[Rfam]
RNA sequence: GGAAGGGAAACAUCACUGGUGUGAUGUCCGGGCUUCAAACCCGGGAGGGGCCGCGAGACGGUCUCUGGUGGGUUCGACUCCCACUCUCUUCC
Number, nucleotide and partner (000 for none) at each position: 001g092002g091003a090004a089005g088006g087007g086008a085009a000010a000011c026012a025013u024014c023015a022016c021017u000018g000019g000020u000021g016022u015023g014024a013025u012026g011027u045028c044029c043030g042031g041032g040033c000034u000035u000036c000037a000038a000039a000040c032041c031042c030043g029044g028045g027046a000047g065048g064049g063050g062051c061052c000053g000054c000055g000056a000057g000058a000059c000060g000061g051062u050063c049064u048065c047066u000067g000068g000069u083070g082071g081072g080073u000074u000075c000076g000077a000078c000079u000080c072081c071082c070083a069084c000085u008086c007087u006088c005089u004090u003091c002092c001
Selenocysteine transfer RNA: a 92-nucleotide RNA from Ancylobacter tetraedralis. The family's consensus secondary structure is taken from published work. The source organism's lineage runs through Bacteria, Pseudomonadati, Hyphomicrobiales, Xanthobacteraceae and Ancylobacter.